Shown here is a 170-nucleotide RNA from Halobacillus sp. BAB-2008, a member of the family "glmS glucosamine-6-phosphate activated ribozyme aptamer". This entry contains a glucosamine-6-phosphate activated ribozyme that is found in the mRNA for GlmS. GlmS is an enzyme that uses fructose-6-phosphate and glutamine to generate glucosamine-6-phosphate. The ribozyme catalyses self cleavage of the glmS mRNA that is thought to regulate GlmS activity. The match comes from Rfam's covariance-model search (111 bits). Its family is annotated with regulation of gene expression and catalytic activity in the Gene Ontology.
RNA sequence: AAUCACAAUAAAGCGCCAGGACUGUGUAGGACGAACGAAGCAAACACAGUUGACGAGGUGGAGGUUCAUCGAUGUUUCGGCGGAUGCCUCCCGGUUGCGUACUUCGACCGUCUGUUUCCGUGUAAACCGUAGAGGUGACUCUUCGAACAACACAUGGGAACCAAGUACAU
Numbered sequence: 001a002a003u004c005a006c007a008a009u010a011a012a013g014c015g016c017c018a019g020g021a022c023u024g025u026g027u028a029g030g031a032c033g034a035a036c037g038a039a040g041c042a043a044a045c046a047c048a049g050u051u052g053a054c055g056a057g058g059u060g061g062a063g064g065u066u067c068a069u070c071g072a073u074g075u076u077u078c079g080g081c082g083g084a085u086g087c088c089u090c091c092c093g094g095u096u097g098c099g100u101a102c103u104u105c106g107a108c109c110g111u112c113u114g115u116u117u118c119c120g121u122g123u124a125a126a127c128c129g130u131a132g133a134g135g136u137g138a139c140u141c142u143u144c145g146a147a148c149a150a151c152a153c154a155u156g157g158g159a160a161c162c163a164a165g166u167a168c169a170u
Base pairs, nucleotide, nucleotide: 020051021050022049023048024047025046026045027044060091061090062089063088064087069080070079071078072077092110093109094108095107096106097105115160116159117158118157119156120155121154128145129144131142132141133140134139
It is annotated as a riboswitch. For this family Rfam cites "Control of gene expression by a natural metabolite-responsive ribozyme" (Winkler et al., Nature, 2004).